A member of the RNA family "Small nucleolar RNA SNORA77" from Ameiurus melas, 133 nucleotides long. The literature on the family includes a 2006 paper in RNA by Schattner et al., "A computational screen for mammalian pseudouridylation guide H/ACA RNAs". Gene Ontology terms of the family: RNA processing and nucleolus. The base pairs follow the family's consensus structure, which was predicted with RNAalifold. Lineage of the source: Eukaryota > Bilateria > Craniata > Actinopterygii > Ameiurus. ACA63 (SNORA77) is a member of the H/ACA class of snoRNAs that guide the sites of modification of uridines to pseudouridines. This snoRNA was identified by computational screening and its expression in mouse experimentally verified by Northern blot and primer extension analysis. A search with the family's covariance model found it, with a score of 44 bits.

RNA sequence: GCAGACUCACUCUGUUUGGGGUCGCCUCCUCCGGCUCGGAACUUUUUCAGUCUGCUACAGUGACGUUGCAGAAAUGCUCCAGACUGUCUCCGCCCCGUGUGGGAGGAGCUACAGAGCGCUCUGCUACACCUGU
Dot-bracket structure: ((((((.......((((.((.(((.......))).)).)))).......))))))...........((((((...((((..................................))))..))))).......).
Numbered sequence: 001g002c003a004g005a006c007u008c009a010c011u012c013u014g015u016u017u018g019g020g021g022u023c024g025c026c027u028c029c030u031c032c033g034g035c036u037c038g039g040a041a042c043u044u045u046u047u048c049a050g051u052c053u054g055c056u057a058c059a060g061u062g063a064c065g066u067u068g069c070a071g072a073a074a075u076g077c078u079c080c081a082g083a084c085u086g087u088c089u090c091c092g093c094c095c096c097g098u099g100u101g102g103g104a105g106g107a108g109c110u111a112c113a114g115a116g117c118g119c120u121c122u123g124c125u126a127c128a129c130c131u132g133u
Stems, first nucleotide, its partner, number of pairs: 001055006014042004019037002022034003067132001068124005076117004